Source information:
A member of the RNA family "Small nucleolar RNA R12" from Macleaya cordata, 78 nucleotides long. The organism belongs to Macleaya, within Eukaryota. For this family Rfam cites "The high diversity of snoRNAs in plants: identification and comparative study of 120 snoRNA genes from Oryza sativa" (Chen et al., Nucleic Acids Res, 2003). The family's consensus secondary structure was predicted with PFOLD.

[Rfam]
RNA sequence: UGUUGAAUGAUGAAAAAAAUCAUUCGGAUUCCCAAUGAUUUUACAAGAUGAUCUUACAACCAGCUACUUCUGACAGCA
Numbered sequence: 001u002g003u004u005g006a007a008u009g010a011u012g013a014a015a016a017a018a019a020u021c022a023u024u025c026g027g028a029u030u031c032c033c034a035a036u037g038a039u040u041u042u043a044c045a046a047g048a049u050g051a052u053c054u055u056a057c058a059a060c061c062a063g064c065u066a067c068u069u070c071u072g073a074c075a076g077c078a
Stems, first nucleotide, its partner, number of pairs: 001078005
Dot-bracket structure: (((((....................................................................)))))